[Rfam]
RNA: Iron response element II
Organism: Hyalella azteca
RNA sequence: ACGCUAUCUGCAGCAGCGCCUGCAACAGUGA
Numbered sequence: 001a002c003g004c005u006a007u008c009u010g011c012a013g014c015a016g017c018g019c020c021u022g023c024a025a026c027a028g029u030g031a
Stems, first nucleotide, its partner, number of pairs: 002030004007025001009024005014018001